[Rfam]
RNA sequence: AUUCUUGUGUAGAGGCAAUAUUGUAGCUUAUGCGGUUAAUCCAAGCGUGAUCAUUGCUGGUUGAAAAUUUUACCCAAUACCCCACCUGGAUGACUUAAAAAAUAGUCAGCUGUGGCAAUUUUUGAUGAUUUCUGGCAAGA
Numbered sequence: 001a002u003u004c005u006u007g008u009g010u011a012g013a014g015g016c017a018a019u020a021u022u023g024u025a026g027c028u029u030a031u032g033c034g035g036u037u038a039a040u041c042c043a044a045g046c047g048u049g050a051u052c053a054u055u056g057c058u059g060g061u062u063g064a065a066a067a068u069u070u071u072a073c074c075c076a077a078u079a080c081c082c083c084a085c086c087u088g089g090a091u092g093a094c095u096u097a098a099a100a101a102a103u104a105g106u107c108a109g110c111u112g113u114g115g116c117a118a119u120u121u122u123u124g125a126u127g128a129u130u131u132c133u134g135g136c137a138a139g140a
Stems, first nucleotide, its partner, number of pairs: 020051005026046003034042002085115002087112003091108005131140002

Notes: This 140-nucleotide sequence from Ameiurus melas belongs to the Rfam family "U4 spliceosomal RNA". On this family, see Plaschka et al., Nature 2017: "Structure of a pre-catalytic spliceosome". The base pairs follow the family's consensus structure, which is taken from published work.